[Rfam]
RNA sequence: CUGGGGGGGGGGGGGUCCCCCAGCCCGGAUUGGGAGAGGGCCCAGGCCAGGCCAAGGGACCCCACCAGUGCACA
Numbered sequence: 001c002u003g004g005g006g007g008g009g010g011g012g013g014g015g016u017c018c019c020c021c022a023g024c025c026c027g028g029a030u031u032g033g034g035a036g037a038g039g040g041c042c043c044a045g046g047c048c049a050g051g052c053c054a055a056g057g058g059a060c061c062c063c064a065c066c067a068g069u070g071c072a073c074a
Stems, first nucleotide, its partner, number of pairs: 004071001006069001009066002012063008023052003027048002030045005
RNA: mir-9193 microRNA precursor family